The family of this 86-nucleotide sequence from Acidihalobacter ferrooxydans is "c-di-GMP-I riboswitch aptamer". Clan: c-di-GMP_I riboswitch clan. It scores 69 bits against the family's covariance model. From the family's description: GEMM was predicted in a large-scale screen for bacterial structured RNA regulatory elements. Rfam links the family to the GO term cyclic-di-GMP binding. Taxonomically the source falls in Acidihalobacter (Bacteria, Pseudomonadati, Chromatiales, Ectothiorhodospiraceae).
Nucleotides: 086
Stems, first nucleotide, its partner, number of pairs: 012037002017032006040080004046076002048072003055066004
Number, partner (000 for none) and nucleotide at each position: 001000g002000g003000u004000u005000a006000u007000g008000a009000a010000g011000g012037g013036c014000a015000a016000a017032g018031u019030c020029g021028g022027u023000g024000a025000a026000a027022g028021c029020c030019g031018a032017u033000g034000a035000c036013g037012c038000a039000a040080a041079g042078c043077c044000a045000c046076g047075g048072g049071u050070c051000u052000a053000a054000g055066g056065c057064u058063c059000u060000g061000a062000c063058g064057a065056g066055c067000u068000a069000g070050g071049g072048c073000a074000g075047c076046c077043g078042g079041u080040u081000u082000c083000u084000a085000c086000c